Bacterial large signal recognition particle RNA: a 265-nucleotide RNA sequence from Oceanobacillus halophilus.
The family's consensus secondary structure is taken from published work.
Rfam's curators write: The signal recognition particle (SRP) is a universally conserved ribonucleoprotein involved in the co-translational targeting of proteins to membranes.
The family is grouped with related families in Rfam's "SRP clan".
[Rfam]
RNA sequence: CCGUGCUAAGCGGGGAGGUAGCGGUGCCCUGUACUCGCAAUCCGCUAUAGCGAGGCCGAAUCCCCAUCCGAGGUGGUCGACUGUACGGUCUGCCUUAAGGGAUUGGUGUUGACGCUUGGGUCCUGCGCAACAGAAACCCAUGAAUCCUGUCAGGUCCGGAAGGAAGCAGCAGUAAGUGGUCAUUUCUGUGUGCCGCAGGGAAGCCUAGGCUGAGCCAUGAACUUAAGUAACGCGUAUAGCCGUUCCAUCAACGAUGGGUGCACGG
Numbered sequence: 001c002c003g004u005g006c007u008a009a010g011c012g013g014g015g016a017g018g019u020a021g022c023g024g025u026g027c028c029c030u031g032u033a034c035u036c037g038c039a040a041u042c043c044g045c046u047a048u049a050g051c052g053a054g055g056c057c058g059a060a061u062c063c064c065c066a067u068c069c070g071a072g073g074u075g076g077u078c079g080a081c082u083g084u085a086c087g088g089u090c091u092g093c094c095u096u097a098a099g100g101g102a103u104u105g106g107u108g109u110u111g112a113c114g115c116u117u118g119g120g121u122c123c124u125g126c127g128c129a130a131c132a133g134a135a136a137c138c139c140a141u142g143a144a145u146c147c148u149g150u151c152a153g154g155u156c157c158g159g160a161a162g163g164a165a166g167c168a169g170c171a172g173u174a175a176g177u178g179g180u181c182a183u184u185u186c187u188g189u190g191u192g193c194c195g196c197a198g199g200g201a202a203g204c205c206u207a208g209g210c211u212g213a214g215c216c217a218u219g220a221a222c223u224u225a226a227g228u229a230a231c232g233c234g235u236a237u238a239g240c241c242g243u244u245c246c247a248u249c250a251a252c253g254a255u256g257g258g259u260g261c262a263c264g265g
Base pairs, nucleotide, nucleotide: 001265002264003263004262005261006260010056011055012030013029014028015027017025019023034054035053036052037051038050063258064257065256066255067254068253072249073248074247075246076245078242079241081239082238083237084236085235086234087233091229092228095226096225097224098223099222103219105216106215107214114210115209116208117207118206119205120204121203122199123198124197125196126195127194128190129189131188132187133186134185135184138179139178140177141176147172148171149170150169155164156163157162
It is annotated as a non-coding RNA gene.